[Rfam]
Nucleotides: 067
Base pairs, nucleotide, nucleotide: 001067002066004064006063007061008060009059010058011057012056013055014054015053016052019049021047022046023045024044025043026042027041
Number, partner (000 for none) and nucleotide at each position: 001067c002066u003000a004064g005000g006063g007061u008060g009059c010058a011057u012056u013055g014054u015053a016052g017000u018000u019049g020000c021047a022046u023045u024044g025043c026042a027041u028000g029000u030000g031000c032000a033000a034000c035000a036000c037000a038000g039000a040000a041027g042026u043025g044024c045023a046022a047021u048000g049019u050000a051000a052016c053015u054014g055013c056012a057011g058010u059009g060008c061007a062000g063006c064004c065000c066002a067001g
The record is a 67-nucleotide RNA sequence from Branchiostoma floridae, which matches "mir-33 microRNA precursor family" in Rfam. The base pairs follow the family's consensus structure, which was predicted with PFOLD. On this family, see Li et al., BMC Genomics 2009: "Direct sequencing and expression analysis of a large number of miRNAs in Aedes aegypti and a multi-species survey of novel mosquito miRNAs".